A member of the RNA family "permuted transfer-messenger RNA", 269 nucleotides long.
[Rfam]
RNA sequence: AGAUAUUUACGCGUAUGAGAUAAUUUGGUAAGACCUGGGUUCGACUCCCAGCACGUCCACACAAUUAUUGUAAUGGUUAUAGACUAUUCCUCUAACGGUUAGGAGCUACGUGUUAUACGUAGGAAUCCAGAUUCGACUCCUGGAUAGUCGCCAUACCUUUUAGGGCGUGUAUUGGCAUUUGAUUACCAAAGGAAGUAAAUACAUUAAGCGUUUAUAUAUUAAAUUUAACUGACAACUAUAAUGUUGUAGAUUAUACUCACGUAGCGUGA
Numbered sequence: 001a002g003a004u005a006u007u008u009a010c011g012c013g014u015a016u017g018a019g020a021u022a023a024u025u026u027g028g029u030a031a032g033a034c035c036u037g038g039g040u041u042c043g044a045c046u047c048c049c050a051g052c053a054c055g056u057c058c059a060c061a062c063a064a065u066u067a068u069u070g071u072a073a074u075g076g077u078u079a080u081a082g083a084c085u086a087u088u089c090c091u092c093u094a095a096c097g098g099u100u101a102g103g104a105g106c107u108a109c110g111u112g113u114u115a116u117a118c119g120u121a122g123g124a125a126u127c128c129a130g131a132u133u134c135g136a137c138u139c140c141u142g143g144a145u146a147g148u149c150g151c152c153a154u155a156c157c158u159u160u161u162a163g164g165g166c167g168u169g170u171a172u173u174g175g176c177a178u179u180u181g182a183u184u185a186c187c188a189a190a191g192g193a194a195g196u197a198a199a200u201a202c203a204u205u206a207a208g209c210g211u212u213u214a215u216a217u218a219u220u221a222a223a224u225u226u227a228a229c230u231g232a233c234a235a236c237u238a239u240a241a242u243g244u245u246g247u248a249g250a251u252u253a254u255a256c257u258c259a260c261g262u263a264g265c266g267u268g269a
Base pairs, nucleotide, nucleotide: 004206005205014199016197017196026188027187028186029185030184031183035051036050037049038048039047052169053168054167055166056165057164058163
Background:
It is annotated as a non-coding RNA gene.